[Rfam]
RNA: Saccharopolyspora sRNA 350
RNA sequence: CGCGCGGUGAACCGCCAGGUGCCGGCGUCGGUCGCGGCCAACUCCCGGUCGCCGAGGUAGUCGCCGUCGGCGAGCGAGCCGAGCACGGUGGGCUCGUCGUACUCGCCCACGCCCAGCUUCUCGAUCUUGCCGUGGGCGAUCAGGACCACCUCGUCGGCCGGCUCCCCGGCCGCCACCAGCACCUCGCCGGGGGCGAGUUCGCGCUGCCGGAAGCGGUCCGCGAGCGCCACCAGCACCUCGGUGUCCUCGAACCCGCGCAGCAGCGGCAGCUCGCGCAGCUCCACCGGGAUGACCCGGACCUCGGCCCCGGCGGCGACGAACUCCACCCGCCCGUCGCCGAGCGUGUGCGUCAGCCGUCGGUUGACCCGGUACGUGCCGCUGGAGACCUCCACCCAGGGCAGCAGCCGCAGCAGCCACCGCGAGGUGAUGCCCUGCAUCUGCGGCACGGUCUUCGUCGUCGUGGCCAGGUUCCGCGCCGCGGCCGUGCCCAGGCUCAACCGCGGAUGCGUCAU
Numbered sequence: 001c002g003c004g005c006g007g008u009g010a011a012c013c014g015c016c017a018g019g020u021g022c023c024g025g026c027g028u029c030g031g032u033c034g035c036g037g038c039c040a041a042c043u044c045c046c047g048g049u050c051g052c053c054g055a056g057g058u059a060g061u062c063g064c065c066g067u068c069g070g071c072g073a074g075c076g077a078g079c080c081g082a083g084c085a086c087g088g089u090g091g092g093c094u095c096g097u098c099g100u101a102c103u104c105g106c107c108c109a110c111g112c113c114c115a116g117c118u119u120c121u122c123g124a125u126c127u128u129g130c131c132g133u134g135g136g137c138g139a140u141c142a143g144g145a146c147c148a149c150c151u152c153g154u155c156g157g158c159c160g161g162c163u164c165c166c167c168g169g170c171c172g173c174c175a176c177c178a179g180c181a182c183c184u185c186g187c188c189g190g191g192g193g194c195g196a197g198u199u200c201g202c203g204c205u206g207c208c209g210g211a212a213g214c215g216g217u218c219c220g221c222g223a224g225c226g227c228c229a230c231c232a233g234c235a236c237c238u239c240g241g242u243g244u245c246c247u248c249g250a251a252c253c254c255g256c257g258c259a260g261c262a263g264c265g266g267c268a269g270c271u272c273g274c275g276c277a278g279c280u281c282c283a284c285c286g287g288g289a290u291g292a293c294c295c296g297g298a299c300c301u302c303g304g305c306c307c308c309g310g311c312g313g314c315g316a317c318g319a320a321c322u323c324c325a326c327c328c329g330c331c332c333g334u335c336g337c338c339g340a341g342c343g344u345g346u347g348c349g350u351c352a353g354c355c356g357u358c359g360g361u362u363g364a365c366c367c368g369g370u371a372c373g374u375g376c377c378g379c380u381g382g383a384g385a386c387c388u389c390c391a392c393c394c395a396g397g398g399c400a401g402c403a404g405c406c407g408c409a410g411c412a413g414c415c416a417c418c419g420c421g422a423g424g425u426g427a428u429g430c431c432c433u434g435c436a437u438c439u440g441c442g443g444c445a446c447g448g449u450c451u452u453c454g455u456c457g458u459c460g461u462g463g464c465c466a467g468g469u470u471c472c473g474c475g476c477c478g479c480g481g482c483c484g485u486g487c488c489c490a491g492g493c494u495c496a497a498c499c500g501c502g503g504a505u506g507c508g509u510c511a512u
Base pairs, nucleotide, nucleotide: 006393007392008391009390011388015384018331019330021328024324025323027321028319029318032316033315034314035313037311038310039309048308051305052304053303054302055301057236058235061232063230066227067226069113070112071111078106080105081104082103083102085100086099087098088097089096121224125220130215133212135208136207137206138205143200152195153194158191159189160188161187162186163181168177169176238298239297243293244292245291247289248288252286257281259280260279261278263274264273265272332345333344334343354382355381356380358378359377360376364374365373394434395433396432397431398430399429400428402426403425406421407420408419410418440479441478442477443476446473447472448471450468451467452466454464455463481510483506484505485504487502489500491498